[Rfam]
RNA sequence: ACCUGAGAUAGAGGACGCAUCACCGCAGGAGUAACCGGAGUGUAUCAGGAUCGGCAGAUCCCGUUCCGGCGGAAGGGCGGGGUGCCGAAGCGGUUCGUUCUGCCGGGCGGAUUUGCUGGGCGGAUGUUUUAAGAGGCAUCCGACUGUCGCUGGCUGCGGAGCGCUAUCCUGUUA
Numbered sequence: 001a002c003c004u005g006a007g008a009u010a011g012a013g014g015a016c017g018c019a020u021c022a023c024c025g026c027a028g029g030a031g032u033a034a035c036c037g038g039a040g041u042g043u044a045u046c047a048g049g050a051u052c053g054g055c056a057g058a059u060c061c062c063g064u065u066c067c068g069g070c071g072g073a074a075g076g077g078c079g080g081g082g083u084g085c086c087g088a089a090g091c092g093g094u095u096c097g098u099u100c101u102g103c104c105g106g107g108c109g110g111a112u113u114u115g116c117u118g119g120g121c122g123g124a125u126g127u128u129u130u131a132a133g134a135g136g137c138a139u140c141c142g143a144c145u146g147u148c149g150c151u152g153g154c155u156g157c158g159g160a161g162c163g164c165u166a167u168c169c170u171g172u173u174a
Stems, first nucleotide, its partner, number of pairs: 007168005017085005023080004035069007089117004093112008118145002121142008147159004